[Rfam]
RNA sequence: GGCCUAACCCUUUAGAAAUAAAGGUAUGGCGAAAAGUCCUUGGAAGAUAAAGAACCCAUCAUAUGUGGUUUGUCUUCCAAGGCCGUAUCGGGAAACUGGUACGAGUGACGCAAGUCGCU
Numbered sequence: 001g002g003c004c005u006a007a008c009c010c011u012u013u014a015g016a017a018a019u020a021a022a023g024g025u026a027u028g029g030c031g032a033a034a035a036g037u038c039c040u041u042g043g044a045a046g047a048u049a050a051a052g053a054a055c056c057c058a059u060c061a062u063a064u065g066u067g068g069u070u071u072g073u074c075u076u077c078c079a080a081g082g083c084c085g086u087a088u089c090g091g092g093a094a095a096c097u098g099g100u101a102c103g104a105g106u107g108a109c110g111c112a113a114g115u116c117g118c119u
Stems, first nucleotide, its partner, number of pairs: 002030003009024006038082011052071005057065003084103008104119006